A member of the RNA family "c-di-AMP riboswitch aptamer (ydaO/yuaA leader)" from Desulfosporosinus sp. Tol-M, 137 nucleotides long. For this family Rfam cites "New RNA motifs suggest an expanded scope for riboswitches in bacterial genetic control" (Barrick et al., Proc Natl Acad Sci U S A, 2004). It scores 90 bits against the family's covariance model. This family represents a conserved RNA structure found upstream of the ydaO and yuaA genes in Bacillus subtilis and related genes in other bacteria. Taxonomically the source falls in Desulfosporosinus (Bacteria, Bacillota, Eubacteriales, Desulfitobacteriaceae).
RNA sequence: AGACAACAAAAGCUUAAUCUGGAUUAACUCCAGAGCGGGGGAUCUUUUAUGGGGGUGAAUCGCGUACUAUACGCGUAGGGCUUGCACCUGAAGUCCGAAUCCGUCAACUAACCUCGUAAGCUUAAGAAAGGUGUAAA
Dot-bracket structure: ..........((((...(((((.......)))))((((((....((....))(((.....((((.......))))..((((...........))))...))).........)))))).))))...............